RNA sequence: UUCGGAUGAAUGCCCUAACUUUUGUGAAAAUGCUUAGAAUUGCUUCCAAUUCACAAUAUGGCAAUAUCCUAGAAAAAUGAACAGGAACUCUGUGCAAUGGCAUUGAAGCUUGUGGCAUUGCAUCGUUCUUCCUGCGACAUUC
Dot-bracket structure: ...(((((..((((.((....(((((((.....(..(((....))).).))))))))).)))).)))))......((((..((((((..(.((((((((.(((........))).)))))))).)...))))))...)))).
Source information:
This 142-nucleotide RNA from Drosophila sechellia belongs to the Rfam family "Drosophila small cajal body-specific RNA PsiU6-40". Rfam classes the family as a small Cajal body RNA. Gene Ontology terms of the family: Cajal body, RNA processing and nucleolus. Pairs were carried over by alignment from the consensus structure, which was predicted with RNAfold.